[Rfam]
RNA: Flavivirus capsid hairpin cHP
Nucleotides: 042
Stems, first nucleotide, its partner, number of pairs: 015035001017033006
Number, partner (000 for none) and nucleotide at each position: 001000a002000u003000g004000a005000a006000c007000c008000a009000a010000c011000g012000a013000a014000a015035a016000a017033a018032g019031g020030u021029g022028g023000u024000u025000a026000g027000a028022c029021c030020a031019c032018c033017u034000u035015u036000c037000a038000a039000u040000a041000u042000g